Shown here is a 156-nucleotide sequence from Paenibacillus montaniterrae, a member of the family "Ribosomal protein L10 leader". Lineage of the source: Bacteria > Bacillati > Bacilli > Paenibacillaceae > Paenibacillus. Rfam classes the family as a cis-regulatory leader. On this family, see Yakhnin et al., Nucleic Acids Res 2015: "Ribosomal protein L10(L12)4 autoregulates expression of the Bacillus subtilis rplJL operon by a transcription attenuation mechanism". The base pairs follow the family's consensus structure, which was predicted with CMfinder.

RNA sequence: UAAAAUUGAAAAUGCAUACCGUAGACAGUAGGUGCCCAAACAGGCUUAAUUUCCUACCGAGGUGUUAUGAUAGAGCGUUAAAGCUUCAAUGUUUAUUGAAAAGCGAACGAAAUCAUGGCCCUCGCUAUGUUUGCGAGGGCCUUUCUCAUGCAUCGA
Numbered sequence: 001u002a003a004a005a006u007u008g009a010a011a012a013u014g015c016a017u018a019c020c021g022u023a024g025a026c027a028g029u030a031g032g033u034g035c036c037c038a039a040a041c042a043g044g045c046u047u048a049a050u051u052u053c054c055u056a057c058c059g060a061g062g063u064g065u066u067a068u069g070a071u072a073g074a075g076c077g078u079u080a081a082a083g084c085u086u087c088a089a090u091g092u093u094u095a096u097u098g099a100a101a102a103g104c105g106a107a108c109g110a111a112a113u114c115a116u117g118g119c120c121c122u123c124g125c126u127a128u129g130u131u132u133g134c135g136a137g138g139g140c141c142u143u144u145c146u147c148a149u150g151c152a153u154c155g156a
Stems, first nucleotide, its partner, number of pairs: 028057005034045003117141009